[Rfam]
RNA sequence: AAGUUAACGUUGCGACAGUAAUCGAACUCAGUACGAGAGGAACAGUUCGUUCAGACAUUUGGUUAAUGCAGUUAGCUGACACGCUAGUGCUGCGAUGCUACCAUCUGCCGGUUUAUGACUGAACGCCUCUAAGUCAGGACCCGUGCUGGAGAUGCAGCGUUAUUUGUGCCGACUGAAUGUGCAGAACACGCCAAACCUUUGACUGCAUAUGUCCAUUCAUCCCGAACGCCUCAGAAGGCGACUGGGUUCAUCAUAGCUUGGAUAGGUCGGUUGAAAUCCUGGGAAAACGACCCAGAAGGCUCCGGGUGCUGUAAGUGCUGAGAGUGGUCAUUGUACCACGAUCCACUGAGGCAUAGCCCGCGACUUACGAUUUGU
Numbered sequence: 001a002a003g004u005u006a007a008c009g010u011u012g013c014g015a016c017a018g019u020a021a022u023c024g025a026a027c028u029c030a031g032u033a034c035g036a037g038a039g040g041a042a043c044a045g046u047u048c049g050u051u052c053a054g055a056c057a058u059u060u061g062g063u064u065a066a067u068g069c070a071g072u073u074a075g076c077u078g079a080c081a082c083g084c085u086a087g088u089g090c091u092g093c094g095a096u097g098c099u100a101c102c103a104u105c106u107g108c109c110g111g112u113u114u115a116u117g118a119c120u121g122a123a124c125g126c127c128u129c130u131a132a133g134u135c136a137g138g139a140c141c142c143g144u145g146c147u148g149g150a151g152a153u154g155c156a157g158c159g160u161u162a163u164u165u166g167u168g169c170c171g172a173c174u175g176a177a178u179g180u181g182c183a184g185a186a187c188a189c190g191c192c193a194a195a196c197c198u199u200u201g202a203c204u205g206c207a208u209a210u211g212u213c214c215a216u217u218c219a220u221c222c223c224g225a226a227c228g229c230c231u232c233a234g235a236a237g238g239c240g241a242c243u244g245g246g247u248u249c250a251u252c253a254u255a256g257c258u259u260g261g262a263u264a265g266g267u268c269g270g271u272u273g274a275a276a277u278c279c280u281g282g283g284a285a286a287a288c289g290a291c292c293c294a295g296a297a298g299g300c301u302c303c304g305g306g307u308g309c310u311g312u313a314a315g316u317g318c319u320g321a322g323a324g325u326g327g328u329c330a331u332u333g334u335a336c337c338a339c340g341a342u343c344c345a346c347u348g349a350g351g352c353a354u355a356g357c358c359c360g361c362g363a364c365u366u367a368c369g370a371u372u373u374g375u
Base pairs, nucleotide, nucleotide: 006161007160008159009158010157011156012155013154016148017147018146019145021051023049024048025047026046027045028044052107053106054105055104060100061099062098067094068093069092070091071090072087073086074085075084076083109143110142111141116136117135118134119133120132168271169270170269171268172267173266174265274373275372276371277370278369279295280294281293282292283291299365301363302362304359305358306357308352309351315346316345317344321342324339325338326337327336328335
Eukaryotic large subunit ribosomal RNA: a 375-nucleotide part of an RNA from uncultured marine alveolate. NCBI's taxonomy places the organism under Eukaryota, Sar, Alveolata. The base pairs follow the family's consensus structure, which is taken from published work.